[Rfam]
RNA sequence: ACCAGGGGCCCUGGCAAGGGUCUCCGGGGCGUGCUCCAGCCAACCAGCCGAGCCGUUCCGUGACUGUACUGCCCACAAGGCGGACUGACGAGGUUGCGACUGGAACGAGUCGUCCCGAGGGACGGGGUAGCGAUUGACGCAUCAGCCAGUCUGACCAGCUUCUCGUUGUUGUAGCGCACACGGCAGCCACGCCGGCUGUGGGCGCAGCAACCGGAACCAGCCAGCCCGGCGGUCGUAUC
Numbered sequence: 001a002c003c004a005g006g007g008g009c010c011c012u013g014g015c016a017a018g019g020g021u022c023u024c025c026g027g028g029g030c031g032u033g034c035u036c037c038a039g040c041c042a043a044c045c046a047g048c049c050g051a052g053c054c055g056u057u058c059c060g061u062g063a064c065u066g067u068a069c070u071g072c073c074c075a076c077a078a079g080g081c082g083g084a085c086u087g088a089c090g091a092g093g094u095u096g097c098g099a100c101u102g103g104a105a106c107g108a109g110u111c112g113u114c115c116c117g118a119g120g121g122a123c124g125g126g127g128u129a130g131c132g133a134u135u136g137a138c139g140c141a142u143c144a145g146c147c148a149g150u151c152u153g154a155c156c157a158g159c160u161u162c163u164c165g166u167u168g169u170u171g172u173a174g175c176g177c178a179c180a181c182g183g184c185a186g187c188c189a190c191g192c193c194g195g196c197u198g199u200g201g202g203c204g205c206a207g208c209a210a211c212c213g214g215a216a217c218c219a220g221c222c223a224g225c226c227c228g229g230c231g232g233u234c235g236u237a238u239c
Base pairs, nucleotide, nucleotide: 005024006023007022008021009020010019011018012017028057029056030055031054035052037050039048040047059153060152062151063150064149065148066147071081072080073079083138087134089132090131115127116126164171165170175204176203177202179200180199181198182197183196184195212229214227217224
Notes: Rfam assigns this 239-nucleotide sequence from Stutzerimonas stutzeri to the family "sRNA regulator of biofilms A". The organism belongs to Stutzerimonas stutzeri, within Bacteria. It scores 128 bits against the family's covariance model. By type it is a small RNA. Important for biofilm formation and pathogenicity. Bacterial strain with deleted SrbA had reduced biofilm mass. As the ability to form biofilms can contribute to the ability a pathogen to thrive within the host, the C. elegans hosts infected with the srbA deleted strain displayed significantly lower mortality rate than the wild-type strain.